[Rfam]
RNA sequence: AUGGCGAACGGCGAUGAGGCCCGCCAUAACCGCGGAAUUCCCCGCUGACGGUCUCUGUUUCUUG
Numbered sequence: 001a002u003g004g005c006g007a008a009c010g011g012c013g014a015u016g017a018g019g020c021c022c023g024c025c026a027u028a029a030c031c032g033c034g035g036a037a038u039u040c041c042c043c044g045c046u047g048a049c050g051g052u053c054u055c056u057g058u059u060u061c062u063u064g
Base pairs, nucleotide, nucleotide: 010025011024012023013022016055017054018053019052020051021050032045033044034043035042
Dot-bracket structure: .........[[[[..((((((]]]]......((((......))))....)))))).........